[Rfam]
This 450-nucleotide RNA sequence from Siculibacillus lacustris belongs to the Rfam family "Bacterial RNase P class A". Taxonomically the source falls in Siculibacillus (Bacteria, Pseudomonadati, Hyphomicrobiales, Ancalomicrobiaceae). The family's consensus secondary structure is taken from published work.
RNA sequence: CCAGUCGGCCGGGCGGCCGCUCCGGGUCUCGAAAGAGGCGCGGGGAGGAAAGUCCGGGCUCCACGGAAAGACGGUGCCGGAUAACGCCCGGCGAGGGCGACCUCAGGGACAGUGCCACAGAAAACAGACCGCCUCGGUCCGGACGGCGUUCGCGUCGUCCCGUCCGCAAGGGUGGAAGCGGUGGCCGCAAGGGCAUCGGUUCGAUCGAGGUCAGGGUGAAAAGGUGGGGUAAGAGCCCACCGCGGACCCGGCAACGGGGACGGCACGGCAAACCCCACCGGGAGCAAGACCGAAUAGGGGCGGCGCGGGCUCGAAAGAGUUCCGGUCUUUUCCGGACCAGUCGCCCGGGUUGGUUGCGCGAGGCGUCCAGCAAUGGGCGUCCCAGACGAAUGGCCGCCACGUGGGGGAAACCCCGCCAUACAGAACCCGGCUUACAGGCCGACUGGCCCU
Dot-bracket structure: ((((((((((((((((((.(((((.(((........))).)))))....[[[.[[[[[((((......[[.(((((((((.......))))(((((....)))).)((...(((((............(((((((((((...............................................................)))))))))..)).......((((((.......))))))(((..((((....))))..)).)..)))..)))))))))))))...((((......((((((....................(((((.]]..)))))..)))))).....))))......((((((((....))))))))..........)))))))...........................]]]]]]]].).))))))))))....